Record summary: This 65-nucleotide RNA sequence from Bacilli bacterium VT-13-104 belongs to the Rfam family "Bacillaceae-1 RNA". A search with the family's covariance model found it, with a score of 48 bits. The family's RNA type in Rfam is small RNA. The organism belongs to Bacilli, within Bacteria.
RNA sequence: UUUCAAGAAAGGCAUGUUAAGUACGCGACAUCCUGUCGCAACACAUGCACUGGUACUUCUGUGCG
Numbered sequence: 001u002u003u004c005a006a007g008a009a010a011g012g013c014a015u016g017u018u019a020a021g022u023a024c025g026c027g028a029c030a031u032c033c034u035g036u037c038g039c040a041a042c043a044c045a046u047g048c049a050c051u052g053g054u055a056c057u058u059c060u061g062u063g064c065g
Stems, first nucleotide, its partner, number of pairs: 012048006025039005053064004